A member of the RNA family "Bacterial large subunit ribosomal RNA" from Leptospirillum sp. Group II '5-way CG', 228 nucleotides of a longer RNA. The sequence is in the family's curated seed alignment. Taxonomically the source falls in Leptospirillum sp. Group II (Bacteria, Nitrospirota, Nitrospirales, Nitrospiraceae). The base pairs follow the family's consensus structure, which is taken from published work.

RNA sequence: GAGUUCAUCAGGGGAGCGAGGUUAAGGAGAUUCCGGAGCCGAAGCGAAAGCGAGUCCGAAGAGGGCGACAGAGUUGUCCUGAUGAGACCCGAAGCGAAGUGAUCUACCCAUGGCCAGGGUGAAGCGCGGCUAACCCCGCGUGGAGGCCCGAACCGGUGCCUGGUGCAAAAGACUCGGAUGAGCUGUGGGUAGGGGCGAAAGACUAAUCAAACUUCGUGAUAGCUGGUU
Numbered sequence: 001g002a003g004u005u006c007a008u009c010a011g012g013g014g015a016g017c018g019a020g021g022u023u024a025a026g027g028a029g030a031u032u033c034c035g036g037a038g039c040c041g042a043a044g045c046g047a048a049a050g051c052g053a054g055u056c057c058g059a060a061g062a063g064g065g066c067g068a069c070a071g072a073g074u075u076g077u078c079c080u081g082a083u084g085a086g087a088c089c090c091g092a093a094g095c096g097a098a099g100u101g102a103u104c105u106a107c108c109c110a111u112g113g114c115c116a117g118g119g120u121g122a123a124g125c126g127c128g129g130c131u132a133a134c135c136c137c138g139c140g141u142g143g144a145g146g147c148c149c150g151a152a153c154c155g156g157u158g159c160c161u162g163g164u165g166c167a168a169a170a171g172a173c174u175c176g177g178a179u180g181a182g183c184u185g186u187g188g189g190u191a192g193g194g195g196c197g198a199a200a201g202a203c204u205a206a207u208c209a210a211a212c213u214u215c216g217u218g219a220u221a222g223c224u225g226g227u228u
Base pairs, nucleotide, nucleotide: 005085006084007083008082009081010080011079012078013077015075016074017073020040021039022038023037026034027033028032044051045050054066055065056064057063088226089225091223095216096215097214098213099212100211104192105191106190107189108188109187110186111185112184113183114182115180117149118148119147120146124141125140126139127138128137129136153177154176155175158173160171161170194204195203